[Rfam]
RNA: S10-Clostridia ribosomal protein leader
RNA sequence: AAAUGGCGAUGAAGCAAGAGGUAGCCGGACUUACGGGGAAUUCUUGCCGAGUAUGUCACGGUCUUGAACCGGGCGACGG
Number, nucleotide and partner (000 for none) at each position: 001a000002a000003a000004u000005g000006g000007c000008g000009a000010u000011g000012a000013a000014g047015c046016a045017a000018g043019a042020g041021g000022u000023a000024g000025c036026c035027g034028g000029a000030c000031u000032u000033a000034c027035g026036g025037g000038g000039a000040a000041u020042u019043c018044u000045u016046g015047c014048c000049g000050a000051g000052u000053a000054u078055g077056u076057c075058a000059c000060g000061g074062u073063c072064u071065u000066g000067a000068a000069c000070c000071g064072g063073g062074c061075g057076a056077c055078g054079g000